[Rfam]
Nucleotides: 164
Base pairs, nucleotide, nucleotide: 002085003084004083006082007081010078011077017069018068019067020066022062023061024060025059026058027057028056142159143158144157145156146155147154
Number, partner (000 for none) and nucleotide at each position: 001000u002085u003084u004083c005000u006082c007081a008000u009000u010078g011077c012000a013000u014000c015000c016000u017069c018068g019067c020066g021000a022062c023061u024060a025059a026058u027057g028056a029000c030000a031000a032000u033000c034000c035000u036000u037000a038000u039000c040000c041000c042000u043000c044000g045000g046000a047000u048000a049000a050000a051000g052000c053000c054000u055000c056028u057027c058026a059025u060024u061023a062022g063000c064000c065000g066020c067019g068018c069017g070000a071000a072000c073000c074000u075000c076000a077011g078010c079000a080000a081007u082006g083004g084003a085002a086000u087000a088000a089000u090000u091000u092000a093000c094000u095000u096000c097000a098000g099000c100000a101000a102000u103000a104000g105000c106000u107000g108000a109000u110000g111000a112000u113000c114000a115000u116000c117000a118000a119000u120000u121000a122000c123000u124000a125000u126000u127000g128000c129000a130000c131000c132000c133000u134000a135000g136000a137000a138000g139000a140000a141000a142159g143158g144157g145156g146155c147154c148000a149000c150000a151000a152000a153000a154147g155146g156145c157144c158143c159142c160000u161000u162000u163000c164000u
This 164-nucleotide sequence from Biostraticola tofi belongs to the Rfam family "SraG RNA". The match comes from Rfam's covariance-model search (119 bits). The base pairs follow the family's consensus structure, which was predicted with PFOLD. About the family: This RNA was discovered in E. coli during a large scale screen. Evidence was found for specific cleavage of this RNA.